Overview
This 100-nucleotide RNA from Thermobrachium celere belongs to the Rfam family "Purine riboswitch aptamer". It scores 86 bits against the family's covariance model. The source organism's lineage runs through Bacteria, Clostridia, Eubacteriales, Thermobrachium and Thermobrachium celere. Pairs were carried over by alignment from the consensus structure, which is taken from published work. Its family is annotated with purine nucleobase biosynthetic process in the Gene Ontology.
[Rfam]
RNA sequence: AAUAAAGAAUACAUGCCUACUCAUAUAAUCCCGAUAAUAUGGUUCGGGAGUCUCUACCGGGGGCCGUAAACCUCCGACUAUGAGUGAGGUUGCUUUGCGU
Numbered sequence: 001a002a003u004a005a006a007g008a009a010u011a012c013a014u015g016c017c018u019a020c021u022c023a024u025a026u027a028a029u030c031c032c033g034a035u036a037a038u039a040u041g042g043u044u045c046g047g048g049a050g051u052c053u054c055u056a057c058c059g060g061g062g063g064c065c066g067u068a069a070a071c072c073u074c075c076g077a078c079u080a081u082g083a084g085u086g087a088g089g090u091u092g093c094u095u096u097g098c099g100u
Stems, first nucleotide, its partner, number of pairs: 018086008029049006058076006